[Rfam]
RNA sequence: AAAACGUUUUAACUAAUAAACUGUUUUGUCCCUCUCCAACAAAGAACAAUUUGUUCUUUGACAGAGAGGGACAAAACAGUUUAUUAGUGGUUCUACCUUUUUU
Numbered sequence: 001a002a003a004a005c006g007u008u009u010u011a012a013c014u015a016a017u018a019a020a021c022u023g024u025u026u027u028g029u030c031c032c033u034c035u036c037c038a039a040c041a042a043a044g045a046a047c048a049a050u051u052u053g054u055u056c057u058u059u060g061a062c063a064g065a066g067a068g069g070g071a072c073a074a075a076a077c078a079g080u081u082u083a084u085u086a087g088u089g090g091u092u093c094u095a096c097c098u099u100u101u102u103u
Stems, first nucleotide, its partner, number of pairs: 001099002010090001012088013025065006045055004